Notes: The record is a 136-nucleotide RNA sequence from Ramlibacter sp., which matches "ZMP/ZTP riboswitch aptamer (pfl RNA motif)" in Rfam.
RNA sequence: UGCCGGGUACGCAACUGGCGAUAGGCGUCGCACCUCCAAGCGGGGUCGCGGACGCUGACGUGGGACACCACUGGGAAGCGUACCGCACGGUUAAAAGCAACGCCCGUGUGUUCAGCCGUUCGCCUGGGCAGCCCUU
Numbered sequence: 001u002g003c004c005g006g007g008u009a010c011g012c013a014a015c016u017g018g019c020g021a022u023a024g025g026c027g028u029c030g031c032a033c034c035u036c037c038a039a040g041c042g043g044g045g046u047c048g049c050g051g052a053c054g055c056u057g058a059c060g061u062g063g064g065a066c067a068c069c070a071c072u073g074g075g076a077a078g079c080g081u082a083c084c085g086c087a088c089g090g091u092u093a094a095a096a097g098c099a100a101c102g103c104c105c106g107u108g109u110g111u112u113c114a115g116c117c118g119u120u121c122g123c124c125u126g127g128g129c130a131g132c133c134c135u136u
Stems, first nucleotide, its partner, number of pairs: 006084007015075002017124005060071004113131001115129003
The match comes from Rfam's covariance-model search (52 bits). Pairs were carried over by alignment from the consensus structure, which is taken from published work.